This 114-nucleotide sequence from Rhizobium sp. NFR07 belongs to the Rfam family "Alphaproteobacterial ar14". The source organism's lineage runs through Bacteria, Pseudomonadota, Alphaproteobacteria, Rhizobiaceae and Rhizobium. Smr14C2 was renamed NfeR1 (Nodule Formation Efficiency RNA) highly expressed in salt stress and during the symbiotic interaction on legume roots. The match comes from Rfam's covariance-model search (72 bits).

RNA sequence: AGGCAUCGGGAUCAUCCUCCUCCUCCCAAACGAUCUCGAUCGGACGGCAGCCGCUCCUCCUCUCAGGCUGACGUCAUCCUUCUAAGCUCGUCGCCUCCGCGACGGGCUUUCGUU
Numbered sequence: 001a002g003g004c005a006u007c008g009g010g011a012u013c014a015u016c017c018u019c020c021u022c023c024u025c026c027c028a029a030a031c032g033a034u035c036u037c038g039a040u041c042g043g044a045c046g047g048c049a050g051c052c053g054c055u056c057c058u059c060c061u062c063u064c065a066g067g068c069u070g071a072c073g074u075c076a077u078c079c080u081u082c083u084a085a086g087c088u089c090g091u092c093g094c095c096u097c098c099g100c101g102a103c104g105g106g107c108u109u110u111c112g113u114u
Base pairs, nucleotide, nucleotide: 007038008037009036010035011034012033013032015030043075044074045073046072048070049069050068051067052066084109085108086107087106088105089104090103091102092101093100094099